RNA sequence: AUUAAAAAAGGUGAUGGAGUUCACCUAAAUUGCUGAUGAGCUAAUGACUCCUGUCGGAUU
Numbered sequence: 001a002u003u004a005a006a007a008a009a010g011g012u013g014a015u016g017g018a019g020u021u022c023a024c025c026u027a028a029a030u031u032g033c034u035g036a037u038g039a040g041c042u043a044a045u046g047a048c049u050c051c052u053g054u055c056g057g058a059u060u
Stems, first nucleotide, its partner, number of pairs: 010025004016051006032041003
RNA: Fluoride riboswitch aptamer (crcB RNA motif)
Organism: Acetobacterium paludosum